RNA sequence: AGCCUCAUUGUCAAUUACAAUGGGCUCUGCUGAUUGGUGUCCAAAGUUGGUCAAGGUAGCUAAAAUUGCAACACAGGUCACUCCGUUCCAUCACAGUAAACAUGUUACAGUGGUGACAGUGAGAUCUGCAACAUUU
Numbered sequence: 001a002g003c004c005u006c007a008u009u010g011u012c013a014a015u016u017a018c019a020a021u022g023g024g025c026u027c028u029g030c031u032g033a034u035u036g037g038u039g040u041c042c043a044a045a046g047u048u049g050g051u052c053a054a055g056g057u058a059g060c061u062a063a064a065a066u067u068g069c070a071a072c073a074c075a076g077g078u079c080a081c082u083c084c085g086u087u088c089c090a091u092c093a094c095a096g097u098a099a100a101c102a103u104g105u106u107a108c109a110g111u112g113g114u115g116a117c118a119g120u121g122a123g124a125u126c127u128g129c130a131a132c133a134u135u136u
Base pairs, nucleotide, nucleotide: 002060003059006056008054021043022042023041024040025039027037074128075127076126077125089115090114091113092112093111094110
Annotation: Shown here is a 136-nucleotide RNA from Heterocephalus glaber, a member of the family "Small nucleolar RNA SNORA1". Rfam describes the family as follows. ACA1 is a member of the H/ACA class of snoRNA that guide the sites of modification of uridines to pseudouridines. The source organism's lineage runs through Eukaryota, Craniata, Theria, Glires and Heterocephalus. Gene Ontology terms of the family: RNA processing and nucleolus. A search with the family's covariance model found it, with a score of 92 bits.